[Rfam]
Nucleotides: 064
Stems, first nucleotide, its partner, number of pairs: 001019004006039005020030004
Number, partner (000 for none) and nucleotide at each position: 001019c002018g003017g004016u005000a006039g007038c008037u009036g010035g011000a012000u013000a014000a015000a016004a017003c018002c019001g020030g021029g022028c023027c024000a025000u026000u027023g028022g029021c030020c031000a032000a033000a034000c035010c036009c037008a038007g039006c040000c041000c042000a043000u044000c045000a046000a047000c048000u049000g050000c051000a052000g053000c054000a055000c056000c057000u058000g059000u060000c061000c062000c063000g064000c